[Rfam]
RNA sequence: CUUGUGAACAGCGGCGUGUAGUUCAGGAACACGAAUCCGCGCGCCUGGUCGAUGCAGUGGAACAGCGGAUUCCAGUCGAACAGCGCCAGCAUGAAGGCCGGCAGCGAGUUGGCGAGGAACAUCUUGCCCGACACGAUCAUGCUCGCCCGCUG
Numbered sequence: 001c002u003u004g005u006g007a008a009c010a011g012c013g014g015c016g017u018g019u020a021g022u023u024c025a026g027g028a029a030c031a032c033g034a035a036u037c038c039g040c041g042c043g044c045c046u047g048g049u050c051g052a053u054g055c056a057g058u059g060g061a062a063c064a065g066c067g068g069a070u071u072c073c074a075g076u077c078g079a080a081c082a083g084c085g086c087c088a089g090c091a092u093g094a095a096g097g098c099c100g101g102c103a104g105c106g107a108g109u110u111g112g113c114g115a116g117g118a119a120c121a122u123c124u125u126g127c128c129c130g131a132c133a134c135g136a137u138c139a140u141g142c143u144c145g146c147c148c149g150c151u152g
Stems, first nucleotide, its partner, number of pairs: 002034005013023002036056001038054002040051002063152005070080003085146002088143006099130003102126003106122001109118002
Source information: A member of the RNA family "Ruegeria cis2 sRNA" from Pontibaca methylaminivorans, 152 nucleotides long. It is annotated as a small RNA. The organism belongs to Pontibaca, within Bacteria. Rfam links the family to the GO term regulation of gene expression. For this family Rfam cites "Experimental Identification of Small Non-Coding RNAs in the Model Marine Bacterium Ruegeria pomeroyi DSS-3" (Rivers et al., Front Microbiol, 2016). It scores 80 bits against the family's covariance model.